[Rfam]
RNA sequence: AACUUAUCAAGAGCGGUGGAGGGACUGGUCCGAUGAAACCCGGCAACCUGCGUGUGAAGCGUAAGGUGCUACUUCCAGCAAAAUGCCCUCAUUUUGAGAGAUAAGGA
Numbered sequence: 001a002a003c004u005u006a007u008c009a010a011g012a013g014c015g016g017u018g019g020a021g022g023g024a025c026u027g028g029u030c031c032g033a034u035g036a037a038a039c040c041c042g043g044c045a046a047c048c049u050g051c052g053u054g055u056g057a058a059g060c061g062u063a064a065g066g067u068g069c070u071a072c073u074u075c076c077a078g079c080a081a082a083a084u085g086c087c088c089u090c091a092u093u094u095u096g097a098g099a100g101a102u103a104a105g106g107a
Stems, first nucleotide, its partner, number of pairs: 003105006013041001015040003021031003025078004042070004047066002049063004074099001079096006